[Rfam]
RNA sequence: GAUGACUUGUCGGAGUGCCAAAAGGGCUGAGAUCGCAUAAGCGGGAUCCGUAGAACCUGAUCAGAUUAGUAUCUGCGAAGGGAACAAGAGAGUGGUUUGC
Numbered sequence: 001g002a003u004g005a006c007u008u009g010u011c012g013g014a015g016u017g018c019c020a021a022a023a024g025g026g027c028u029g030a031g032a033u034c035g036c037a038u039a040a041g042c043g044g045g046a047u048c049c050g051u052a053g054a055a056c057c058u059g060a061u062c063a064g065a066u067u068a069g070u071a072u073c074u075g076c077g078a079a080g081g082g083a084a085c086a087a088g089a090g091a092g093u094g095g096u097u098u099g100c
Base pairs, nucleotide, nucleotide: 006088007087008086009085010084011050012049013048014047016044017027018026019025034043035042036041056081057080058079062075063074064073065072
Rfam assigns this 100-nucleotide RNA sequence from Thalassomonas actiniarum to the family "TPP riboswitch aptamer (THI element)".
Lineage of the source: Bacteria > Pseudomonadati > Gammaproteobacteria > Alteromonadales > Thalassomonas.